RNA sequence: CGGGCGUUCGCGGGAGAGUGAGGCAGGGCCCGCUCAAAUCGUAGGCGGCGCAAGCCGACGGUUCGAUUUGAGCAACAAGGACCCGGCUUCCGCCGAAGGAGCAACCGCCCCGGAAUCUCUCAGGUCAAAGGACCGCGACCGCCUG
Numbered sequence: 001c002g003g004g005c006g007u008u009c010g011c012g013g014g015a016g017a018g019u020g021a022g023g024c025a026g027g028g029c030c031c032g033c034u035c036a037a038a039u040c041g042u043a044g045g046c047g048g049c050g051c052a053a054g055c056c057g058a059c060g061g062u063u064c065g066a067u068u069u070g071a072g073c074a075a076c077a078a079g080g081a082c083c084c085g086g087c088u089u090c091c092g093c094c095g096a097a098g099g100a101g102c103a104a105c106c107g108c109c110c111c112g113g114a115a116u117c118u119c120u121c122a123g124g125u126c127a128a129a130g131g132a133c134c135g136c137g138a139c140c141g142c143c144u145g
Stems, first nucleotide, its partner, number of pairs: 006140001008138006020090004092125003095121002099119003105113002